Shown here is a 133-nucleotide sequence from Danio rerio, a member of the family "U8 small nucleolar RNA". It scores 65 bits against the family's covariance model. For this family Rfam cites "A small nucleolar RNA functions in rRNA processing in Caenorhabditis elegans" (Hokii et al., Nucleic Acids Res, 2010). By type it is a C/D-box small nucleolar RNA. Lineage of the source: Eukaryota > Metazoa > Actinopteri > Teleostei > Danio.
RNA sequence: GCAUCAGUGAGGUUUAUCCUUGCCUGUUGUCUUAGAAUUAAGACUUCAGCACAUGAUGAUUGGAUUCUAUGAAUACAUGAUUAUACUCUGUAUUCAUAUAGGGCUUGUCACCCAUUUAUGAAUCCUGUCUGAU
Numbered sequence: 001g002c003a004u005c006a007g008u009g010a011g012g013u014u015u016a017u018c019c020u021u022g023c024c025u026g027u028u029g030u031c032u033u034a035g036a037a038u039u040a041a042g043a044c045u046u047c048a049g050c051a052c053a054u055g056a057u058g059a060u061u062g063g064a065u066u067c068u069a070u071g072a073a074u075a076c077a078u079g080a081u082u083a084u085a086c087u088c089u090g091u092a093u094u095c096a097u098a099u100a101g102g103g104c105u106u107g108u109c110a111c112c113c114a115u116u117u118a119u120g121a122a123u124c125c126u127g128u129c130u131g132a133u
Base pairs, nucleotide, nucleotide: 024049025048026047029044030043031042032041033040071088072087074085078083093122094121095120096119097118098117100116101115